[Rfam]
RNA sequence: AAAAAGGGUCGGUUGGCUAAAUAUGCCACAUUCAUCCGAUGGGUGAGUGCUGUAUGGAAAUCAAGACAUAUGGCCGACAUAAUUUGUGGAAUUUUAUAGGGUUGGCUCCUUGGUCGACCCUCCC
Number, nucleotide and partner (000 for none) at each position: 001a000002a000003a000004a000005a000006g000007g000008g078009u077010c076011g075012g074013u000014u028015g027016g026017c025018u000019a000020a000021a000022u000023a000024u000025g017026c016027c015028a014029c049030a048031u047032u046033c045034a044035u043036c042037c041038g000039a000040u000041g037042g036043g035044u034045g033046a032047g031048u030049g029050c073051u072052g071053u070054a069055u068056g067057g000058a000059a000060a000061u000062c000063a000064a000065g000066a000067c056068a055069u054070a053071u052072g051073g050074c012075c011076g010077a009078c008079a000080u000081a000082a000083u000084u000085u000086g000087u000088g000089g000090a000091a000092u000093u000094u000095u000096a000097u000098a121099g000100g119101g118102u117103u116104g000105g115106c000107u113108c112109c000110u000111u000112g108113g107114u000115c105116g103117a102118c101119c100120c000121u098122c000123c000124c000